[Rfam]
RNA sequence: AGGGGUGUAGUUCAUCGGUAGAAUAAGAGUCUCCAAAACUCCAGAGGUGGGUUCGAUUCCUACCACCCCUG
Numbered sequence: 001a002g003g004g005g006u007g008u009a010g011u012u013c014a015u016c017g018g019u020a021g022a023a024u025a026a027g028a029g030u031c032u033c034c035a036a037a038a039c040u041c042c043a044g045a046g047g048u049g050g051g052u053u054c055g056a057u058u059c060c061u062a063c064c065a066c067c068c069c070u071g
Stems, first nucleotide, its partner, number of pairs: 001070007010024004027041004047063005